[Rfam]
RNA sequence: UCACUUCACAUUGACGCGCGAGACCCUAUAUAGGGCGUGCCGGUUUCGACCGGCUAUGGUGAUAAACUGCGGUGUGCAAUAGACACAACGGACCCGGGGGCAGUACCCGGCGGCUCCACCAAAACGCCCGGAAAUCCGGGAAUUUUGACGGGGCCGAACUAGGAUCGACGUGUGUUGAAAAGCAUCGUUUUCGCCCGGGCUGAGUAACCCGCAUAAGGCUCAUCUUUAUAAGUGCAAACGAUAACGAAGCACUCGCAAUUGCAGCGUAAUUGAUGGCCUAAGGGCCUGACAUUACUACGUAAAAGCGCGGUUGGACCCACCGGGCAACAGAAGGGAUACCG
Numbered sequence: 001u002c003a004c005u006u007c008a009c010a011u012u013g014a015c016g017c018g019c020g021a022g023a024c025c026c027u028a029u030a031u032a033g034g035g036c037g038u039g040c041c042g043g044u045u046u047c048g049a050c051c052g053g054c055u056a057u058g059g060u061g062a063u064a065a066a067c068u069g070c071g072g073u074g075u076g077c078a079a080u081a082g083a084c085a086c087a088a089c090g091g092a093c094c095c096g097g098g099g100g101c102a103g104u105a106c107c108c109g110g111c112g113g114c115u116c117c118a119c120c121a122a123a124a125c126g127c128c129c130g131g132a133a134a135u136c137c138g139g140g141a142a143u144u145u146u147g148a149c150g151g152g153g154c155c156g157a158a159c160u161a162g163g164a165u166c167g168a169c170g171u172g173u174g175u176u177g178a179a180a181a182g183c184a185u186c187g188u189u190u191u192c193g194c195c196c197g198g199g200c201u202g203a204g205u206a207a208c209c210c211g212c213a214u215a216a217g218g219c220u221c222a223u224c225u226u227u228a229u230a231a232g233u234g235c236a237a238a239c240g241a242u243a244a245c246g247a248a249g250c251a252c253u254c255g256c257a258a259u260u261g262c263a264g265c266g267u268a269a270u271u272g273a274u275g276g277c278c279u280a281a282g283g284g285c286c287u288g289a290c291a292u293u294a295c296u297a298c299g300u301a302a303a304a305g306c307g308c309g310g311u312u313g314g315a316c317c318c319a320c321c322g323g324g325c326a327a328c329a330g331a332a333g334g335g336a337u338a339c340c341g
Stems, first nucleotide, its partner, number of pairs: 039054005058195005069188007084174003088171003094110005111156007196211004201222003308322004313339001315337001317335002
The record is a 341-nucleotide RNA from Qipengyuania atrilutea, which matches "Alphaproteobacteria transfer-messenger RNA" in Rfam. About the family: Bacterial tmRNA, also known as 10Sa RNA or SsrA, is named for its dual tRNA and mRNA-like properties. Its role is to liberate the mRNA from a stalled ribosome. Rfam links the family to the GO term RNA catabolic process. For this family Rfam cites "Variations on the tmRNA gene" (Mao et al., RNA Biol, 2010). NCBI's taxonomy places the organism under Bacteria, Pseudomonadati, Pseudomonadota, Alphaproteobacteria, Qipengyuania.